[Rfam]
RNA: L4-Archaeoglobi ribosomal protein leades
RNA sequence: CUGAUGGGCGCGCUCGGGUCAAUUGCGGUCUGCAACACCCAAUCUCCCUGCCGGUCCCGUCCGGAAUGGAUGGGCUGGUUGAGGGGGAACGCGUCUCCGUCAG
Numbered sequence: 001c002u003g004a005u006g007g008g009c010g011c012g013c014u015c016g017g018g019u020c021a022a023u024u025g026c027g028g029u030c031u032g033c034a035a036c037a038c039c040c041a042a043u044c045u046c047c048c049u050g051c052c053g054g055u056c057c058c059g060u061c062c063g064g065a066a067u068g069g070a071u072g073g074g075c076u077g078g079u080u081g082a083g084g085g086g087g088a089a090c091g092c093g094u095c096u097c098c099g100u101c102a103g
Base pairs, nucleotide, nucleotide: 001103002102003101004100005099008094009093010092011091012090016040017039018038023035024034025033026032027031043088044087045086046085047084048083049082050079051078052077053076054075055074056073057072